Shown here is a 67-nucleotide sequence from Anguilla anguilla, a member of the family "Selenocysteine insertion sequence 1". Rfam classes the family as a cis-regulatory element.
[Rfam]
RNA sequence: GAUGUAUUAAUGAUGGCCUGUGUCUAAACUCUCCUGAGGAGGCAGGCUUGAUGCUUAUACGCAUGGC
Numbered sequence: 001g002a003u004g005u006a007u008u009a010a011u012g013a014u015g016g017c018c019u020g021u022g023u024c025u026a027a028a029c030u031c032u033c034c035u036g037a038g039g040a041g042g043c044a045g046g047c048u049u050g051a052u053g054c055u056u057a058u059a060c061g062c063a064u065g066g067c
Base pairs, nucleotide, nucleotide: 001067003065004064005063015048016047017046018045019044020043021042023040024039029038030037031036